[Rfam]
RNA sequence: UAGUUAUUAAGAAAGGUGGAGGGAAUAGACCCUUUGAAGCCUUAGCAACCCUUUGUGUAAACAAAGAAGGUGCUAAAUUCUACUUCAAUAUUUAAAAUAUUGUGGAGAGAUAACCC
Numbered sequence: 001u002a003g004u005u006a007u008u009a010a011g012a013a014a015g016g017u018g019g020a021g022g023g024a025a026u027a028g029a030c031c032c033u034u035u036g037a038a039g040c041c042u043u044a045g046c047a048a049c050c051c052u053u054u055g056u057g058u059a060a061a062c063a064a065a066g067a068a069g070g071u072g073c074u075a076a077a078u079u080c081u082a083c084u085u086c087a088a089u090a091u092u093u094a095a096a097a098u099a100u101u102g103u104g105g106a107g108a109g110a111u112a113a114c115c116c
Base pairs, nucleotide, nucleotide: 003114004113005112006111007110008109013043014042015041016040017039021032022031023030026082027081028080029079044074045073046072047071049070050069051066052065053064054063078108083105084104086102087101088100089099090098091097
Annotation:
Rfam assigns this 116-nucleotide sequence from Tenacibaculum jejuense to the family "SAM riboswitch aptamer (S box leader)". Rfam 15.1 lists 9,625 matches to the family in 4,158 species. The source organism's lineage runs through Bacteria, Pseudomonadati, Flavobacteriia, Flavobacteriaceae and Tenacibaculum. The SAM riboswitch is found upstream of a number of genes which code for proteins involved in methionine or cysteine biosynthesis in Gram-positive bacteria. Its family is annotated with regulation of gene expression in the Gene Ontology.